Description: Shown here is a 37-nucleotide RNA from Nostoc punctiforme, a member of the family "CRISPR RNA direct repeat element".

RNA sequence: CUUUCAACCCACCCAGUACCUGGAGGGUUGUUGCCAC
Numbered sequence: 001c002u003u004u005c006a007a008c009c010c011a012c013c014c015a016g017u018a019c020c021u022g023g024a025g026g027g028u029u030g031u032u033g034c035c036a037c
Base pairs, nucleotide, nucleotide: 005033006032007031008030009027010026013023014022015021